Bacterial small subunit ribosomal RNA: a 355-nucleotide part of an RNA from Desulfobacter postgatei.

[Rfam]
RNA sequence: GGCGUAAAGGGCGCGCAGGCGGUCUUGUCCGUCAGGUGUGAAAGCUCGGGGCUCAACCCCGGAAGUGCACUUGAAACAGCAAGACUUGAAUACGGGAGAGGAAAGCGGAAUUCCUGGUGUAGAGGUGAAAUUCGUAGAUAUCAGGAGGAACACCGAUGGCGAAGGCAGCUUUCUGGACCGAUAUUGACGCUGAGGCGCGAAGGCGUGGGUAGCAAACGGGAUUAGAUACCCCGGUAGUCCACGCAGUAAACGUUGUACACUCGGUGUAGCGGGUAUUAAAACCUGCUGUGCCCAAGCUAACGCAUUAAGUGUACCGCCUGGGAAGUACGGUCGCAAGACUAAAACUCAAAGGAAU
Numbered sequence: 001g002g003c004g005u006a007a008a009g010g011g012c013g014c015g016c017a018g019g020c021g022g023u024c025u026u027g028u029c030c031g032u033c034a035g036g037u038g039u040g041a042a043a044g045c046u047c048g049g050g051g052c053u054c055a056a057c058c059c060c061g062g063a064a065g066u067g068c069a070c071u072u073g074a075a076a077c078a079g080c081a082a083g084a085c086u087u088g089a090a091u092a093c094g095g096g097a098g099a100g101g102a103a104a105g106c107g108g109a110a111u112u113c114c115u116g117g118u119g120u121a122g123a124g125g126u127g128a129a130a131u132u133c134g135u136a137g138a139u140a141u142c143a144g145g146a147g148g149a150a151c152a153c154c155g156a157u158g159g160c161g162a163a164g165g166c167a168g169c170u171u172u173c174u175g176g177a178c179c180g181a182u183a184u185u186g187a188c189g190c191u192g193a194g195g196c197g198c199g200a201a202g203g204c205g206u207g208g209g210u211a212g213c214a215a216a217c218g219g220g221a222u223u224a225g226a227u228a229c230c231c232c233g234g235u236a237g238u239c240c241a242c243g244c245a246g247u248a249a250a251c252g253u254u255g256u257a258c259a260c261u262c263g264g265u266g267u268a269g270c271g272g273g274u275a276u277u278a279a280a281a282c283c284u285g286c287u288g289u290g291c292c293c294a295a296g297c298u299a300a301c302g303c304a305u306u307a308a309g310u311g312u313a314c315c316g317c318c319u320g321g322g323a324a325g326u327a328c329g330g331u332c333g334c335a336a337g338a339c340u341a342a343a344a345c346u347c348a349a350a351g352g353a354a355u
Stems, first nucleotide, its partner, number of pairs: 001318003009315001011198004016192001018191003022085007031077001032074009046062006089185003093180003100174007107151001111147008122133003159166002203244006212238002217233004255314006263292012296303002320347003329340004
On this family, see Cannone et al., BMC Bioinformatics 2002: "The comparative RNA web (CRW) site: an online database of comparative sequence and structure information for ribosomal, intron, and other RNAs".